RNA sequence: UGACCCGGUGACGCCCGACGCCAAAGACCAAGAACCGGGGGAAAGAACCGGACCCUCCCCUGCCGUCCCCGUCGAUCACUCGCCGGAGUGAAUAUGCCCAACUGAACUGGCGUCCGGCACCACUUGUGGUGCAGCGUCAGUCGCGACAACCCCAGACACGCCUCACAUGCAUCGGCCCUCGCCGGGACUGCCAUCCCAGUGCGAGGGCCUGAUCACCAAGGAAGAAAGCCGCUUCCCG
Number, nucleotide and partner (000 for none) at each position: 001u000002g000003a000004c000005c000006c000007g217008g216009u215010g214011a000012c000013g000014c000015c000016c000017g067018a066019c065020g064021c000022c000023a000024a000025a000026g000027a000028c000029c000030a000031a000032g000033a000034a000035c000036c000037g000038g000039g000040g000041g000042a000043a000044a000045g000046a000047a000048c000049c000050g000051g000052a000053c000054c000055c000056u000057c000058c000059c000060c000061u000062g000063c000064c020065g019066u018067c017068c000069c000070c000071g000072u000073c000074g000075a000076u091077c090078a089079c088080u087081c086082g000083c000084c000085g000086g081087a080088g079089u078090g077091a076092a000093u000094a000095u000096g000097c000098c000099c000100a000101a000102c000103u000104g000105a000106a141107c140108u139109g138110g137111c000112g000113u000114c000115c000116g000117g000118c000119a000120c000121c000122a000123c000124u000125u000126g000127u000128g000129g000130u000131g000132c000133a000134g000135c000136g000137u110138c109139a108140g107141u106142c000143g000144c000145g000146a000147c000148a000149a000150c000151c000152c000153c000154a000155g000156a000157c000158a000159c000160g000161c000162c000163u000164c000165a000166c000167a000168u000169g000170c000171a000172u000173c000174g209175g208176c207177c206178c205179u000180c203181g202182c201183c000184g197185g196186g195187a194188c000189u000190g000191c000192c000193a000194u187195c186196c185197c184198a000199g000200u000201g182202c181203g180204a000205g178206g177207g176208c175209c174210u000211g000212a000213u000214c010215a009216c008217c007218a000219a000220g236221g235222a234223a233224g232225a000226a000227a000228g000229c000230c000231g000232c224233u223234u222235c221236c220237c000238g000
The record is a 238-nucleotide RNA sequence from Streptomyces glaucescens, which matches "Streptomyces sRNA 4677" in Rfam. By type it is a small RNA. The match comes from Rfam's covariance-model search (124 bits). Located in the intergenic region between anti-sigma factor SCO4677 gene and a putative regulatory protein gene SCO4676. scr4677 expression requires the SCO4677 activity and scr4677 sRNA itself seem to affect the levels of the SCO4676-associated transcripts. On this family, see Hindra et al., PLoS One 2014: "Complex intra-operonic dynamics mediated by a small RNA in Streptomyces coelicolor". The family has 12 seed sequences and 563 matches in Rfam 15.1.